RNA sequence: GUGGGCUACGGGGACAUGCGCCCCGUCGGCGUCUGGGGCAAGAUCGUCGGCUCGCUGUGCGCCAUCGCGGGCGUGCUAACCAUCGCGCUGCCCGUGCCGGUCAUCGUGUCCAAC
Number, nucleotide and partner (000 for none) at each position: 001g114002u113003g000004g111005g110006c000007u108008a107009c106010g105011g104012g000013g102014a101015c100016a000017u000018g097019c096020g095021c094022c000023c000024c000025g000026u000027c000028g000029g000030c000031g000032u000033c000034u000035g000036g000037g077038g076039c075040a074041a000042g000043a000044u000045c000046g000047u000048c000049g063050g062051c061052u000053c000054g000055c000056u000057g000058u000059g000060c000061g051062c050063c049064a000065u000066c000067g000068c000069g000070g000071g000072c000073g000074u040075g039076c038077u037078a000079a000080c000081c000082a000083u000084c000085g000086c000087g000088c000089u000090g000091c000092c000093c000094g021095u020096g019097c018098c000099g000100g015101u014102c013103a000104u011105c010106g009107u008108g007109u000110c005111c004112a000113a002114c001
RNA: Potassium channel RNA editing signal
Organism: Ixodes scapularis